This 189-nucleotide sequence from Hipposideros armiger belongs to the Rfam family "Beta-globin co-transcriptional cleavage ribozyme". The base pairs follow the family's consensus structure, which is taken from published work. About the family: Transcription termination of RNA polymerase II transcripts is proposed to occur by a two stage process. The first stage involves pre-termination cleavage (PTC) of the nascent transcript downstream of the poly(A) site. This process is also referred to as co-transcriptional cleavage (CoTC). The CoTC process in the human beta-globin gene has been shown to involve an RNA self-cleaving activity located in the 3' flanking region of the beta-globin gene.
RNA sequence: GCAUAGUGUAAUCAGCAGCACACCCUAUUUUAAUUUCCUCAAUUAAUAGCCACUUCCGUGGAUGCUAGAUUCUGGAAAUAAAAUAUCAGCUUGGAGUGGUUCUUGUCUCCUUCUAAACCCCAGUUCUGAAUCUAGUUAGGAAGAUUCUGAAAGUAAGGCAUCCAACAAAUGACUAUAAAUGAGUGUGUA
Numbered sequence: 001g002c003a004u005a006g007u008g009u010a011a012u013c014a015g016c017a018g019c020a021c022a023c024c025c026u027a028u029u030u031u032a033a034u035u036u037c038c039u040c041a042a043u044u045a046a047u048a049g050c051c052a053c054u055u056c057c058g059u060g061g062a063u064g065c066u067a068g069a070u071u072c073u074g075g076a077a078a079u080a081a082a083a084u085a086u087c088a089g090c091u092u093g094g095a096g097u098g099g100u101u102c103u104u105g106u107c108u109c110c111u112u113c114u115a116a117a118c119c120c121c122a123g124u125u126c127u128g129a130a131u132c133u134a135g136u137u138a139g140g141a142a143g144a145u146u147c148u149g150a151a152a153g154u155a156a157g158g159c160a161u162c163c164a165a166c167a168a169a170u171g172a173c174u175a176u177a178a179a180u181g182a183g184u185g186u187g188u189a
Base pairs, nucleotide, nucleotide: 022186023185025183030179031178033176034175039172040171041170043168047060048059062161063160064159065158066157068119070117071116074114075113076112088111089110094104095103096102124151125150126149128147129146130145131144132143133142
Dot-bracket structure: .....................((.(....((.((....(((.(...((..........)).(((((.(.((..(((...........((....(((.....))).....))))).)).)....(((.((((((........)))))).))).....)))))......).)))..)).))...).))...